[Rfam]
RNA: Ascomycota telomerase RNA, nucleotides 1176 to 1368
Organism: Thermothelomyces thermophilus
RNA sequence: AGCCCCUGCCCGUGUCUCUAGCACGGCCCUUUCCUCCGCCGGGGGCCUGAAACAUGGUCGAUCGGCACGGAGAUGAUAGCGCGGUUUUUUGAGGAUGUAUUUUGUCCGUGCGGUUACCUGCCCUCCUUUUUUUCCUGCCCAUCCUUCGGGGUGGUGCCGGCGAUGGGAGAGGAAACAAAAACUAGUCCCCGUU
Numbered sequence: 001a002g003c004c005c006c007u008g009c010c011c012g013u014g015u016c017u018c019u020a021g022c023a024c025g026g027c028c029c030u031u032u033c034c035u036c037c038g039c040c041g042g043g044g045g046c047c048u049g050a051a052a053c054a055u056g057g058u059c060g061a062u063c064g065g066c067a068c069g070g071a072g073a074u075g076a077u078a079g080c081g082c083g084g085u086u087u088u089u090u091g092a093g094g095a096u097g098u099a100u101u102u103u104g105u106c107c108g109u110g111c112g113g114u115u116a117c118c119u120g121c122c123c124u125c126c127u128u129u130u131u132u133u134c135c136u137g138c139c140c141a142u143c144c145u146u147c148g149g150g151g152u153g154g155u156g157c158c159g160g161c162g163a164u165g166g167g168a169g170a171g172g173a174a175a176c177a178a179a180a181a182c183u184a185g186u187c188c189c190c191g192u193u
Stems, first nucleotide, its partner, number of pairs: 008027002011025004016021001032076002034072005039065004044059003094187003097182002100180006121172002123169004140165004146160004151155001